[Rfam]
RNA: Eukaryotic large subunit ribosomal RNA, nucleotides 1 to 417
Organism: Chromerida sp. RM11
RNA sequence: AGACAUCAAUUUAGACAAGGUUACCCGCUGAAUUUAAGCAUAUAAUUAAGCGGAGGAAAAGAAACUAACCAGGAUUCCCUUAGUAACGGCGAGUGAAGAGGGACAAGCUCAAAGUGCUAAUCAGUGCAUUGCACUGAAUUGUGGCCUCUAGAAACGACACCAGUGGCAUUGCAGAGGUAAAUCUCCUGGAAAGGAGUAGCAGAGAGGGUGAGACUCCCGUCUUUACUCUGCAGUGUGCCGCGUAUCGGUGCGUUUUCUCUGAGUCGAGUAGCUUGGGACUGCUGCUCAAAAUUGGUGGUAAACUUCAUCUAAAGCUAAACAUUGGUGAGAGACCGAUAGCAAACAAGUACUGUGAAGGAAAGAUGAAAAGAACACAGGUAUGUGGGUUAAAAGUACCUGAAACCGCUGCAAGGGAAG
Numbered sequence: 001a002g003a004c005a006u007c008a009a010u011u012u013a014g015a016c017a018a019g020g021u022u023a024c025c026c027g028c029u030g031a032a033u034u035u036a037a038g039c040a041u042a043u044a045a046u047u048a049a050g051c052g053g054a055g056g057a058a059a060a061g062a063a064a065c066u067a068a069c070c071a072g073g074a075u076u077c078c079c080u081u082a083g084u085a086a087c088g089g090c091g092a093g094u095g096a097a098g099a100g101g102g103a104c105a106a107g108c109u110c111a112a113a114g115u116g117c118u119a120a121u122c123a124g125u126g127c128a129u130u131g132c133a134c135u136g137a138a139u140u141g142u143g144g145c146c147u148c149u150a151g152a153a154a155c156g157a158c159a160c161c162a163g164u165g166g167c168a169u170u171g172c173a174g175a176g177g178u179a180a181a182u183c184u185c186c187u188g189g190a191a192a193g194g195a196g197u198a199g200c201a202g203a204g205a206g207g208g209u210g211a212g213a214c215u216c217c218c219g220u221c222u223u224u225a226c227u228c229u230g231c232a233g234u235g236u237g238c239c240g241c242g243u244a245u246c247g248g249u250g251c252g253u254u255u256u257c258u259c260u261g262a263g264u265c266g267a268g269u270a271g272c273u274u275g276g277g278a279c280u281g282c283u284g285c286u287c288a289a290a291a292u293u294g295g296u297g298g299u300a301a302a303c304u305u306c307a308u309c310u311a312a313a314g315c316u317a318a319a320c321a322u323u324g325g326u327g328a329g330a331g332a333c334c335g336a337u338a339g340c341a342a343a344c345a346a347g348u349a350c351u352g353u354g355a356a357g358g359a360a361a362g363a364u365g366a367a368a369a370g371a372a373c374a375c376a377g378g379u380a381u382g383u384g385g386g387u388u389a390a391a392a393g394u395a396c397c398u399g400a401a402a403c404c405g406c407u408g409c410a411a412g413g414g415a416a417g
Stems, first nucleotide, its partner, number of pairs: 024055001025053005035042002065072002076103005086094002106316004115143003119139001121137007151257002153254004158250004163241007171231006181197001183196004200204001207217002266287007294309004350357002373384004